mir-8813 microRNA precursor family: a 97-nucleotide RNA sequence from Canis lupus. The source organism's lineage runs through Eukaryota, Vertebrata, Euteleostomi, Laurasiatheria and Canis lupus. Rfam 15.1 lists 307 matches to the family in 4 species. The family's consensus secondary structure was predicted with RNAalifold. A search with the family's covariance model found it, with a score of 84 bits.

RNA sequence: UGGUGACCUGAGGCUCCCUGACUGUCACUCUGUCCCAGCCCCACCUGGCCCGCGGGGCACAGGCUGAGUCCCAGUAAAGUCCGUGGGGUCCUGACCC
Numbered sequence: 001u002g003g004u005g006a007c008c009u010g011a012g013g014c015u016c017c018c019u020g021a022c023u024g025u026c027a028c029u030c031u032g033u034c035c036c037a038g039c040c041c042c043a044c045c046u047g048g049c050c051c052g053c054g055g056g057g058c059a060c061a062g063g064c065u066g067a068g069u070c071c072c073a074g075u076a077a078a079g080u081c082c083g084u085g086g087g088g089u090c091c092u093g094a095c096c097c
Base pairs, nucleotide, nucleotide: 002096003095004094005090006089007088008087009086012081013080014079015078021075022074023073024072027069028068029067030066032064033063034062039057040056041055042054044052